[Rfam]
RNA sequence: CACGGACCUUUGAAUGAGACCUCCAGCCGCACCGUGGCCGGACCUGACCCGACUUCCCCCGGGCCAGGCACGGACACACCGCGCGGAUGGGGAUCUGAUCCAAGGGUCCUCUGCUU
Numbered sequence: 001c002a003c004g005g006a007c008c009u010u011u012g013a014a015u016g017a018g019a020c021c022u023c024c025a026g027c028c029g030c031a032c033c034g035u036g037g038c039c040g041g042a043c044c045u046g047a048c049c050c051g052a053c054u055u056c057c058c059c060c061g062g063g064c065c066a067g068g069c070a071c072g073g074a075c076a077c078a079c080c081g082c083g084c085g086g087a088u089g090g091g092g093a094u095c096u097g098a099u100c101c102a103a104g105g106g107u108c109c110u111c112u113g114c115u116u
Base pairs, nucleotide, nucleotide: 010103011102012101014099015098018095019094021092022091023090024089025088027086028085029084030083032081034079038073039072040071043068044067045066046065048063049062050061
RNA: mraW RNA
Organism: Micrococcus terreus